[Rfam]
RNA sequence: GGGGACGAUCUGGUUUCGACUGCCGUGAAUCGGGUCGUUGGUCGCAUGCGAAGUUGAGGAGCUUCUAAAAACCUCACCCUUUACGUGCAAACGAAGAGUUUGCUCUCGCUGCUUAAUAGGUAGCAAGACGCUCUGCCCGGCUUUCCUUCUCGGGCCGGAACAGAGCGCCACCUCAGAGAAGGCGAAGGUUGCGGGCCCGGACGGCUGUAACUUUUGUAUAACCCGCCCGGAACGAUUGUGGUUGGCCGUCGCUGCGCUUGCCCCGAUCGUAACCAGCAGCGACUAAGCAUGUAGGGGCCCUCGGGUCGCACGGUAGGACGCGGGUUCGACUCCCGCCGUCUCCAGAA
Numbered sequence: 001g002g003g004g005a006c007g008a009u010c011u012g013g014u015u016u017c018g019a020c021u022g023c024c025g026u027g028a029a030u031c032g033g034g035u036c037g038u039u040g041g042u043c044g045c046a047u048g049c050g051a052a053g054u055u056g057a058g059g060a061g062c063u064u065c066u067a068a069a070a071a072c073c074u075c076a077c078c079c080u081u082u083a084c085g086u087g088c089a090a091a092c093g094a095a096g097a098g099u100u101u102g103c104u105c106u107c108g109c110u111g112c113u114u115a116a117u118a119g120g121u122a123g124c125a126a127g128a129c130g131c132u133c134u135g136c137c138c139g140g141c142u143u144u145c146c147u148u149c150u151c152g153g154g155c156c157g158g159a160a161c162a163g164a165g166c167g168c169c170a171c172c173u174c175a176g177a178g179a180a181g182g183c184g185a186a187g188g189u190u191g192c193g194g195g196c197c198c199g200g201a202c203g204g205c206u207g208u209a210a211c212u213u214u215u216g217u218a219u220a221a222c223c224c225g226c227c228c229g230g231a232a233c234g235a236u237u238g239u240g241g242u243u244g245g246c247c248g249u250c251g252c253u254g255c256g257c258u259u260g261c262c263c264c265g266a267u268c269g270u271a272a273c274c275a276g277c278a279g280c281g282a283c284u285a286a287g288c289a290u291g292u293a294g295g296g297g298c299c300c301u302c303g304g305g306u307c308g309c310a311c312g313g314u315a316g317g318a319c320g321c322g323g324g325u326u327c328g329a330c331u332c333c334c335g336c337c338g339u340c341u342c343c344a345g346a347a
Stems, first nucleotide, its partner, number of pairs: 001343007020316008032307002035304003040299004045291005050065005055076005104128003108124005129167006137158007147182002150179002184215007196229001199226001233269006240262003245257002248283004320336005

Record summary:
Shown here is a 347-nucleotide sequence from Leptonema illini, a member of the family "transfer-messenger RNA". Bacterial tmRNA, also known as 10Sa RNA or SsrA, is named for its dual tRNA and mRNA-like properties. Its role is to liberate the mRNA from a stalled ribosome. To accomplish this part of the tmRNA is used as a reading frame that ends in a translation stop signal. Taxonomically the source falls in Leptonema illini (Bacteria, Spirochaetota, Leptospiraceae, Leptonema). The family's consensus secondary structure is taken from published work. A search with the family's covariance model found it, with a score of 155 bits.